[Rfam]
RNA sequence: AACUCAUCCAGAGGAGCUGAGGGAUACGGCCCUGUGACGCUCCGGCAACCACCGUCUGCUCAUCAGCAGGCGGAAGGUGCCAACUCCGUCCCGCCUUCGAUGCGGGAAAGAUGAGGG
Number, nucleotide and partner (000 for none) at each position: 001a000002a000003c115004u114005c113006a112007u111008c110009c000010a000011g000012a000013g043014g042015a041016g040017c039018u000019g000020a000021g032022g031023g030024a000025u000026a089027c088028g087029g086030c023031c022032c021033u000034g000035u000036g000037a000038c000039g017040c016041u015042c014043c013044g081045g080046c079047a078048a000049c077050c076051a000052c073053c072054g071055u070056c069057u068058g067059c000060u000061c000062a000063u000064c000065a000066g000067c058068a057069g056070g055071c054072g053073g052074a000075a000076g050077g049078u047079g046080c045081c044082a000083a000084c000085u109086c029087c028088g027089u026090c106091c105092c104093g103094c102095c000096u000097u000098c000099g000100a000101u000102g094103c093104g092105g091106g090107a000108a000109a085110g008111a007112u006113g005114a004115g003116g000117g000
About this RNA
The family of this 117-nucleotide sequence from Actinorhabdospora filicis is "SAM riboswitch aptamer (S box leader)". The literature on the family includes a 1998 paper in Mol Microbiol by Grundy and Henkin, "The S box regulon: a new global transcription termination control system for methionine and cysteine biosynthesis genes in gram-positive bacteria". It scores 82 bits against the family's covariance model. The organism belongs to Actinorhabdospora, within Bacteria.